Shown here is a 61-nucleotide sequence from Limnospira maxima, a member of the family "Plastid-psbN 5UTR RNA".
The literature on the family includes a 2023 paper in Plant Commun by Richter et al., "Retrograde signaling in plants: A critical review focusing on the GUN pathway and beyond".
It scores 54 bits against the family's covariance model.
Rfam's curators write: Plastid psbN is a non-coding RNA (ncRNA) recognised in plastids. It was reported as a conserved 11 stem-loop in the prime untranslated region (5UTR) of psbN genes. It has been reported that the motif is retained in a subset of mature transcripts in barley, which can suggests a possible role in transcript alternative 5 prime processing.
The family's RNA type in Rfam is cis-regulatory element.

RNA sequence: AAAAACCCCCAUCAGGGGAGUAGUACCCCAACCGGGGGCAACCUUACCAUAUUCUGAGUUA
Dot-bracket structure: ................((.((.((.((.......)).)).)).))................